The record is a 70-nucleotide RNA sequence from Branchiostoma floridae, which matches "mir-10 microRNA precursor family" in Rfam. The organism belongs to Branchiostoma, within Eukaryota. It scores 48 bits against the family's covariance model. A reference for the family is Lee and Ambros (2001), "An extensive class of small RNAs in Caenorhabditis elegans", Science.
[Rfam]
RNA sequence: UGACAUAGACCCAUAGACACGAGCUUGUGAACUGAAGCAACACAAGUUCGGAUCUACGGGUUUAUGGCAG
Numbered sequence: 001u002g003a004c005a006u007a008g009a010c011c012c013a014u015a016g017a018c019a020c021g022a023g024c025u026u027g028u029g030a031a032c033u034g035a036a037g038c039a040a041c042a043c044a045a046g047u048u049c050g051g052a053u054c055u056a057c058g059g060g061u062u063u064a065u066g067g068c069a070g
Stems, first nucleotide, its partner, number of pairs: 002068001004066004010060003015055003020050010